[Rfam]
RNA sequence: UAGAGUAAAGGGCAAACCGGUCGAAAGGUCGGGACGCAAAGCCACCGGUCUAAGGGUUCAUAACCUAAGACAGCGGAGCUGCCAUC
Numbered sequence: 001u002a003g004a005g006u007a008a009a010g011g012g013c014a015a016a017c018c019g020g021u022c023g024a025a026a027g028g029u030c031g032g033g034a035c036g037c038a039a040a041g042c043c044a045c046c047g048g049u050c051u052a053a054g055g056g057u058u059c060a061u062a063a064c065c066u067a068a069g070a071c072a073g074c075g076g077a078g079c080u081g082c083c084a085u086c
Base pairs, nucleotide, nucleotide: 012037013036017032018031019030020029021028022027040080041079042078045076046075047074048071049070050069055065056064057063058062